[Rfam]
RNA sequence: AGCCCCGGGGCAGGCUGGAAGACUUGUGAUUUUGUUGUUUCCAAUGUCAAGGGGAGCAAACAACAAAUCCCAGUCUCCGUCCUGCCCUGGGCA
Numbered sequence: 001a002g003c004c005c006c007g008g009g010g011c012a013g014g015c016u017g018g019a020a021g022a023c024u025u026g027u028g029a030u031u032u033u034g035u036u037g038u039u040u041c042c043a044a045u046g047u048c049a050a051g052g053g054g055a056g057c058a059a060a061c062a063a064c065a066a067a068u069c070c071c072a073g074u075c076u077c078c079g080u081c082c083u084g085c086c087c088u089g090g091g092c093a
Base pairs, nucleotide, nucleotide: 002092003091004090005089008087009086011084012083013082014081016079017078018077020076021075022074023073024072026071028069029068030067031066032065034064035063036062037061038060039059

This 93-nucleotide sequence from Fregetta grallaria belongs to the Rfam family "mir-7 microRNA precursor family". For this family Rfam cites "microRNAs: tiny regulators with great potential" (Ambros, Cell, 2001). The match comes from Rfam's covariance-model search (69 bits). The base pairs follow the family's consensus structure, which was predicted with PFOLD. From the family's description: This family represents the microRNA (miRNA) precursor mir-7.